RNA sequence: CUACCGGCGUCGAAAGGCGUCGGGAUGGGGCGGCAGGAGUCAGCAGAGGCCGUAGUAGCCGGACCAAGCGGUGAAGGGC
Numbered sequence: 001c002u003a004c005c006g007g008c009g010u011c012g013a014a015a016g017g018c019g020u021c022g023g024g025a026u027g028g029g030g031c032g033g034c035a036g037g038a039g040u041c042a043g044c045a046g047a048g049g050c051c052g053u054a055g056u057a058g059c060c061g062g063a064c065c066a067a068g069c070g071g072u073g074a075a076g077g078g079c
Base pairs, nucleotide, nucleotide: 001027004023005022006021007020008019009018010017011016040047041046049079050078051077058072059071060070061069